[Rfam]
Nucleotides: 059
Stems, first nucleotide, its partner, number of pairs: 002056003006053012021038003
Number, partner (000 for none) and nucleotide at each position: 001000u002056g003055u004054g005000c006053a007052g008051u009050g010049g011048c012047a013046g014045g015044g016043a017042a018000g019000a020000u021038a022037c023036u024000g025000u026000g027000a028000c029000a030000u031000a032000g033000c034000u035000a036023g037022g038021u039000a040000a041000a042017u043016u044015u045014c046013u047012u048011g049010c050009c051008a052007c053006u054004c055003a056002c057000a058000g059000u

This 59-nucleotide sequence from Vombatus ursinus belongs to the Rfam family "mir-7398 microRNA precursor family". Lineage of the source: Eukaryota > Metazoa > Eumetazoa > Vombatidae > Vombatus. Gene Ontology terms of the family: RISC complex and miRNA-mediated post-transcriptional gene silencing.